A member of the RNA family "tpke11" from Duffyella gerundensis, 75 nucleotides long.
A reference for the family is Rivas et al. (2001), "Computational identification of noncoding RNAs in E. coli by comparative genomics", Curr Biol.
Rfam's curators write: In Yersinia located in ICR upstream dnaJ (chaperone)gene.
The family's RNA type in Rfam is small RNA.
RNA sequence: AACCGCUGUUAACCAGCACGGGCGGCGGAGUUUUCUCCACGCCCGUUCAUGUUUGUUAAGGGCAUUAAAAACAUG
Numbered sequence: 001a002a003c004c005g006c007u008g009u010u011a012a013c014c015a016g017c018a019c020g021g022g023c024g025g026c027g028g029a030g031u032u033u034u035c036u037c038c039a040c041g042c043c044c045g046u047u048c049a050u051g052u053u054u055g056u057u058a059a060g061g062g063c064a065u066u067a068a069a070a071a072c073a074u075g
Base pairs, nucleotide, nucleotide: 005013016048018046019045020044021043022042023041024040027038028037029036030035